[Rfam]
RNA: mir-3070 microRNA precursor family
Organism: Mesocricetus auratus
RNA sequence: GUGCUAAGGUGAGGCUGAGCCCCUGACCUUGAACCUGGGAUCCUACCCAUGAUCUCCUGGUGAUGCUGUCAGGGGUACAUUCCUUUUUGU
Numbered sequence: 001g002u003g004c005u006a007a008g009g010u011g012a013g014g015c016u017g018a019g020c021c022c023c024u025g026a027c028c029u030u031g032a033a034c035c036u037g038g039g040a041u042c043c044u045a046c047c048c049a050u051g052a053u054c055u056c057c058u059g060g061u062g063a064u065g066c067u068g069u070c071a072g073g074g075g076u077a078c079a080u081u082c083c084u085u086u087u088u089g090u
Base pairs, nucleotide, nucleotide: 005089006088007087011085012084013083014082019076020075021074022073023072024071025070026069027068033061034060035059037056038055039054040053041052042051